[Rfam]
RNA sequence: ACGGCAGCCCGGUGAGGCCAAGGUCGAUCCGGAAGAGAAGGUUCGUUCUCCCGACCCGGGCACCCAGCACGGUUCUCGGCACCCACGCGGAGUCAUAGCCGCGAUAAUGGCAGAAGUGUUGCGGGCCUGCGUAAUUGCGAAUGACGGAAUGCCCCGACGGCCCUUUGGGUGGGGUCGCAGCAGGAAGUUUCGCAAACGCGCCGAGGCCACCCACGCAGCCCACAUAUGCACGCUUGGUACCCGGGAACCGUGUUGGCGGGCGGCGAUUCGAAUUCAUUCGUAUCGCCGCCCGCUUCGCAUU
Numbered sequence: 001a002c003g004g005c006a007g008c009c010c011g012g013u014g015a016g017g018c019c020a021a022g023g024u025c026g027a028u029c030c031g032g033a034a035g036a037g038a039a040g041g042u043u044c045g046u047u048c049u050c051c052c053g054a055c056c057c058g059g060g061c062a063c064c065c066a067g068c069a070c071g072g073u074u075c076u077c078g079g080c081a082c083c084c085a086c087g088c089g090g091a092g093u094c095a096u097a098g099c100c101g102c103g104a105u106a107a108u109g110g111c112a113g114a115a116g117u118g119u120u121g122c123g124g125g126c127c128u129g130c131g132u133a134a135u136u137g138c139g140a141a142u143g144a145c146g147g148a149a150u151g152c153c154c155c156g157a158c159g160g161c162c163c164u165u166u167g168g169g170u171g172g173g174g175u176c177g178c179a180g181c182a183g184g185a186a187g188u189u190u191c192g193c194a195a196a197c198g199c200g201c202c203g204a205g206g207c208c209a210c211c212c213a214c215g216c217a218g219c220c221c222a223c224a225u226a227u228g229c230a231c232g233c234u235u236g237g238u239a240c241c242c243g244g245g246a247a248c249c250g251u252g253u254u255g256g257c258g259g260g261c262g263g264c265g266a267u268u269c270g271a272a273u274u275c276a277u278u279c280g281u282a283u284c285g286c287c288g289c290c291c292g293c294u295u296c297g298c299a300u301u
Stems, first nucleotide, its partner, number of pairs: 003064002007061006016052002021049002025045003029041002065255009076244004083237003087233003092229002098111003118219006124208005129201004135195006144188002150182003158177007256293011269280002
Shown here is a 301-nucleotide sequence from Mycobacterium kiyosense, a member of the family "Mycobacterium smegmatis small RNA 1". The base pairs follow the family's consensus structure, which was predicted with CMfinder. On this family, see Hnilicova et al., Nucleic Acids Res 2014: "Ms1, a novel sRNA interacting with the RNA polymerase core in mycobacteria". From the family's description: Mycobacterium smegmatis small RNA 1 is highly expressed during stationary phase of growth. Ms1 RNA directly interacts with RNA polymerase (RNAP), but in a different way than 6S, which is present in other bacteria. Ms1 does not require the presence of the main sigma factor for RNAP interaction. There is evidence that Ms1 RNA may function similar to 6S RNA in M. smegmatis which does not have 6S RNA.